[Rfam]
RNA sequence: AGGGUUCCGGUUCACGCCUUUGAGUCAGCACAGGCUCGACUCAGCCCAGGGCGACCCGGCGACC
Numbered sequence: 001a002g003g004g005u006u007c008c009g010g011u012u013c014a015c016g017c018c019u020u021u022g023a024g025u026c027a028g029c030a031c032a033g034g035c036u037c038g039a040c041u042c043a044g045c046c047c048a049g050g051g052c053g054a055c056c057c058g059g060c061g062a063c064c
Stems, first nucleotide, its partner, number of pairs: 003064003007059004015053006022046001
Rfam assigns this 64-nucleotide RNA from Actinoplanes regularis to the family "L31-Actinobacteria ribosomal protein leader". Pairs were carried over by alignment from the consensus structure, which is taken from published work. Taxonomically the source falls in Actinoplanes (Bacteria, Actinomycetota, Actinomycetes, Micromonosporales).